[Rfam]
RNA sequence: UCUAGCACCUGGCGCCUGACUCCCAGCCGUUCUCCCUGACACACUUCCCCGGUGCCAGGAAGGAAUGGAUGGGGAUCAGGACCCAGGAACUACUCCCG
Numbered sequence: 001u002c003u004a005g006c007a008c009c010u011g012g013c014g015c016c017u018g019a020c021u022c023c024c025a026g027c028c029g030u031u032c033u034c035c036c037u038g039a040c041a042c043a044c045u046u047c048c049c050c051g052g053u054g055c056c057a058g059g060a061a062g063g064a065a066u067g068g069a070u071g072g073g074g075a076u077c078a079g080g081a082c083c084c085a086g087g088a089a090c091u092a093c094u095c096c097c098g
Stems, first nucleotide, its partner, number of pairs: 010085003015080002018077002021074005027068004031063003035059004040054003
RNA: mraW RNA